[Rfam]
RNA sequence: GGGAUCAGCGAGGGGCGCCCUCUUGUCUCGUUGACAAUGGCUGAGAAGUUACCCUUUGAACCUGAUCCAGUUAAUACUGGCGGAGGGACUGCUGACGAUGGCCAUG
Numbered sequence: 001g002g003g004a005u006c007a008g009c010g011a012g013g014g015g016c017g018c019c020c021u022c023u024u025g026u027c028u029c030g031u032u033g034a035c036a037a038u039g040g041c042u043g044a045g046a047a048g049u050u051a052c053c054c055u056u057u058g059a060a061c062c063u064g065a066u067c068c069a070g071u072u073a074a075u076a077c078u079g080g081c082g083g084a085g086g087g088a089c090u091g092c093u094g095a096c097g098a099u100g101g102c103c104a105u106g
Base pairs, nucleotide, nucleotide: 006094007093008092009091010090011055012054013053014052017041018040019039021037061086062085063084067080068079069078070077